[Rfam]
RNA sequence: GAGUUAGAGAUGAUUAUAAAAGUAAUUCUUCGUUCUGACUUGCUUAAUUUAGACAUGAUAAAUCUUUUAUUACAACCAUAAAAUUUGAGUUAU
Numbered sequence: 001g002a003g004u005u006a007g008a009g010a011u012g013a014u015u016a017u018a019a020a021a022g023u024a025a026u027u028c029u030u031c032g033u034u035c036u037g038a039c040u041u042g043c044u045u046a047a048u049u050u051a052g053a054c055a056u057g058a059u060a061a062a063u064c065u066u067u068u069a070u071u072a073c074a075a076c077c078a079u080a081a082a083a084u085u086u087g088a089g090u091u092a093u
Base pairs, nucleotide, nucleotide: 003093004092006091007090
Shown here is a 93-nucleotide RNA sequence from Theobroma umbraticum, a member of the family "Small nucleolar RNA snoR8a". On this family, see Brown et al., RNA 2001: "Multiple snoRNA gene clusters from Arabidopsis". The base pairs follow the family's consensus structure, which was predicted with WAR. Lineage of the source: Eukaryota > Viridiplantae > Embryophyta > Pentapetalae > Theobroma.